[Rfam]
Shown here is a 60-nucleotide sequence from Phasianus colchicus, a member of the family "Guanidine-II riboswitch aptamer (mini-ykkC)". Gene Ontology term of the family: regulation of gene expression. Lineage of the source: Eukaryota > Gnathostomata > Sauria > Neognathae > Phasianus. The base pairs follow the family's consensus structure, which is taken from published work.
RNA sequence: UUAUGGGGACGACCCCAUUAGGGUCACCUCUAUGGGGUCACCUCUGUGGGGACGACCCCA
Number, nucleotide and partner (000 for none) at each position: 001u020002u000003a018004u017005g016006g015007g014008g013009a000010c000011g000012a000013c008014c007015c006016c005017a004018u003019u000020a001021g000022g000023g000024u000025c000026a000027c000028c000029u000030c000031u000032a000033u000034g000035g000036g000037g000038u000039c000040a000041c000042c000043u000044c000045u000046g000047u060048g059049g058050g057051g056052a000053c000054g000055a000056c051057c050058c049059c048060a047